[Rfam]
RNA: mir-965 microRNA precursor family
Organism: Sphaeramia orbicularis
RNA sequence: UUUCCGACGUGCAAGUUAUAUGUUUAUGUUUAAACAUAAACAUAAACAUAAACAUAUAACUUGCACGUCGGAAA
Numbered sequence: 001u002u003u004c005c006g007a008c009g010u011g012c013a014a015g016u017u018a019u020a021u022g023u024u025u026a027u028g029u030u031u032a033a034a035c036a037u038a039a040a041c042a043u044a045a046a047c048a049u050a051a052a053c054a055u056a057u058a059a060c061u062u063g064c065a066c067g068u069c070g071g072a073a074a
Stems, first nucleotide, its partner, number of pairs: 003072005009066005016059005023052006